RNA sequence: GCCGGUCCUCGGUAGUGGCUUCCGGUAGACGUGACGUCUGACCGGGCGCUUCGAUCGAAGACCGGC
Numbered sequence: 001g002c003c004g005g006u007c008c009u010c011g012g013u014a015g016u017g018g019c020u021u022c023c024g025g026u027a028g029a030c031g032u033g034a035c036g037u038c039u040g041a042c043c044g045g046g047c048g049c050u051u052c053g054a055u056c057g058a059a060g061a062c063c064g065g066c
Stems, first nucleotide, its partner, number of pairs: 001066007009058005017050003021046006027039003

Actino-pnp RNA: a 66-nucleotide sequence from Nonomuraea polychroma. The match comes from Rfam's covariance-model search (65 bits). The base pairs follow the family's consensus structure, which is taken from published work.